A member of the RNA family "Burkholderia sRNA 7" from Burkholderia sp. SRS-W-2-2016, 158 nucleotides long. The organism belongs to Burkholderia, within Bacteria. A reference for the family is Ghosh et al. (2017), "Identification of novel small RNAs in Burkholderia cenocepacia KC-01 expressed under iron limitation and oxidative stress conditions", Microbiology. Pairs were carried over by alignment from the consensus structure, which was predicted with R-scape. About the family: Did not show any change in expression in iron-depletion and hydrogen peroxide (oxidative stress) treatment. Constitutively expressed. Possibly targets the GTPase, ObgE.

[Rfam]
RNA sequence: GUAUUCUUUCGCGCAUGAACCGCAUCCAGUCCGAACUCCGACGUCGCCGCUCGCCGCUCCCCUAGGGACGCCGCUGGCUUCGUCACGGAUUCGCGCCGCACACCACUUCGGCGCAAGCUGUUCGAAUCAUGAAAGCCACGGCCUGCCGUGGCUUUUCU
Numbered sequence: 001g002u003a004u005u006c007u008u009u010c011g012c013g014c015a016u017g018a019a020c021c022g023c024a025u026c027c028a029g030u031c032c033g034a035a036c037u038c039c040g041a042c043g044u045c046g047c048c049g050c051u052c053g054c055c056g057c058u059c060c061c062c063u064a065g066g067g068a069c070g071c072c073g074c075u076g077g078c079u080u081c082g083u084c085a086c087g088g089a090u091u092c093g094c095g096c097c098g099c100a101c102a103c104c105a106c107u108u109c110g111g112c113g114c115a116a117g118c119u120g121u122u123c124g125a126a127u128c129a130u131g132a133a134a135g136c137c138a139c140g141g142c143c144u145g146c147c148g149u150g151g152c153u154u155u156u157c158u
Base pairs, nucleotide, nucleotide: 007125008124011096012095013094014093031088032087033086039082040081041080043078044077045076046074047073049071050070054066132155133154134153135152136151137150138149139148140147141146